[Rfam]
Shown here is a 125-nucleotide RNA sequence from Mariniflexile fucanivorans, a member of the family "SAM riboswitch aptamer (S box leader)". It scores 71 bits against the family's covariance model. Gene Ontology term of the family: regulation of gene expression.
RNA sequence: AUGUUAUCAAGAAAGGUGGAGGGAUUAGACCCUUUGAAGCCUUAGCAACCUCCCGAACUUAUCGGGGAAGGUGCUAAAUUCUACUUAGUUUUCAAUUCAUUUAUUGAAAGUUGGAUAGAUAACCA
Dot-bracket structure: ..((((((....(((((...(((..[[[[)))......)))))((((.((((((.........))))..))))))...(]]]]((.(.((((.............)))).).))..)))))))..